[Rfam]
RNA sequence: GGGAGGGGCUAUGGGUCAGGAGUGAGGGCCACUCCUGACCCAUAGCCAGGAGGGCUCA
Numbered sequence: 001g002g003g004a005g006g007g008g009c010u011a012u013g014g015g016u017c018a019g020g021a022g023u024g025a026g027g028g029c030c031a032c033u034c035c036u037g038a039c040c041c042a043u044a045g046c047c048a049g050g051a052g053g054g055c056u057c058a
Base pairs, nucleotide, nucleotide: 012042013041014040015039016038017037018036019035020034021033022032026057027056028055029054030053
RNA: Ma3 gene ribosomal frameshift signal
Organism: Alligator mississippiensis